[Rfam]
RNA: Manganese Mn2+ riboswitch aptamer (yybP-ykoY)
RNA sequence: GCCGCUGUCUUUGGGGAGUAGUCGCCCGCAUCUCAGCGGGGUUCACGUCAACAGACUUGCCGGGUGACUGGCAUGGCGUGAACGGCCAAUUCGGCUUGGCGAGACCAGAGGUUGGCUUCCGCUCAUGGGUUGGGCGGGGAGGCCGGCCUUUGGUAUGCGUCGCUCGACC
Numbered sequence: 001g002c003c004g005c006u007g008u009c010u011u012u013g014g015g016g017a018g019u020a021g022u023c024g025c026c027c028g029c030a031u032c033u034c035a036g037c038g039g040g041g042u043u044c045a046c047g048u049c050a051a052c053a054g055a056c057u058u059g060c061c062g063g064g065u066g067a068c069u070g071g072c073a074u075g076g077c078g079u080g081a082a083c084g085g086c087c088a089a090u091u092c093g094g095c096u097u098g099g100c101g102a103g104a105c106c107a108g109a110g111g112u113u114g115g116c117u118u119c120c121g122c123u124c125a126u127g128g129g130u131u132g133g134g135c136g137g138g139g140a141g142g143c144c145g146g147c148c149u150u151u152g153g154u155a156u157g158c159g160u161c162g163c164u165c166g167a168c169c
Stems, first nucleotide, its partner, number of pairs: 026039003041083010058073005